RNA sequence: GGCGGGCCCCUUCGCAUGGUCCGGCGGUGAAACUGGUCAGGUCGGGAACGAAGCAGCCAUAGUCGCUCAGGAUCAGUGCCGAAGUCAGGCUCGCCCUU
Numbered sequence: 001g002g003c004g005g006g007c008c009c010c011u012u013c014g015c016a017u018g019g020u021c022c023g024g025c026g027g028u029g030a031a032a033c034u035g036g037u038c039a040g041g042u043c044g045g046g047a048a049c050g051a052a053g054c055a056g057c058c059a060u061a062g063u064c065g066c067u068c069a070g071g072a073u074c075a076g077u078g079c080c081g082a083a084g085u086c087a088g089g090c091u092c093g094c095c096c097u098u
Base pairs, nucleotide, nucleotide: 004092005091006090007089008088010084011083012082013081014080015076017075018074019073020072021071022070023067024066025065026064027063028062034059035058036057037056042051043050044049
RNA: Bacterial small signal recognition particle RNA